RNA: Bacterial RNase P class B
RNA sequence: AUUUUCGGAUAAUCGCAUGAAAAACAGGUUUUUUCAUGAGGAAAGUCCAUGCUAGCACGAGCUGAGAUGCUCGUAGUGUUUGUGCUAGGUGAAACAAUAAGCCUAGGGACGCCAUUGGCGUUACGGCGAGGAAAAGGGCUAAGUCUUUGAUAUGCCUUAGUACCUCUGAAAGUGCCACAGUGACGGAGUUUUUAUGGAAACGUAAAAAAUGGAACGCGGUAAACCCCUCAAGCUAGCAACCCAAACUUUGGUAGGGGCACGAGAUAGCUGGAAAUGAACGGACUAUCUUGACUGGAAACAGUAGACAGAUGAUUAUCGAAGGAAGUGGUACCUAGUCACUUCUGGAACAAAACAUGGCUUAUAGAA
Numbered sequence: 001a002u003u004u005u006c007g008g009a010u011a012a013u014c015g016c017a018u019g020a021a022a023a024a025c026a027g028g029u030u031u032u033u034u035c036a037u038g039a040g041g042a043a044a045g046u047c048c049a050u051g052c053u054a055g056c057a058c059g060a061g062c063u064g065a066g067a068u069g070c071u072c073g074u075a076g077u078g079u080u081u082g083u084g085c086u087a088g089g090u091g092a093a094a095c096a097a098u099a100a101g102c103c104u105a106g107g108g109a110c111g112c113c114a115u116u117g118g119c120g121u122u123a124c125g126g127c128g129a130g131g132a133a134a135a136g137g138g139c140u141a142a143g144u145c146u147u148u149g150a151u152a153u154g155c156c157u158u159a160g161u162a163c164c165u166c167u168g169a170a171a172g173u174g175c176c177a178c179a180g181u182g183a184c185g186g187a188g189u190u191u192u193u194a195u196g197g198a199a200a201c202g203u204a205a206a207a208a209a210u211g212g213a214a215c216g217c218g219g220u221a222a223a224c225c226c227c228u229c230a231a232g233c234u235a236g237c238a239a240c241c242c243a244a245a246c247u248u249u250g251g252u253a254g255g256g257g258c259a260c261g262a263g264a265u266a267g268c269u270g271g272a273a274a275u276g277a278a279c280g281g282a283c284u285a286u287c288u289u290g291a292c293u294g295g296a297a298a299c300a301g302u303a304g305a306c307a308g309a310u311g312a313u314u315a316u317c318g319a320a321g322g323a324a325g326u327g328g329u330a331c332c333u334a335g336u337c338a339c340u341u342c343u344g345g346a347a348c349a350a351a352a353c354a355u356g357g358c359u360u361a362u363a364g365a366a
Stems, first nucleotide, its partner, number of pairs: 004366003007362001008317007016038006043360003047357005052236005057074006080231003084227001085106006107124001108122006125226002128166004136157004143151003172224002174220003189208008240256003260290007291302004321343009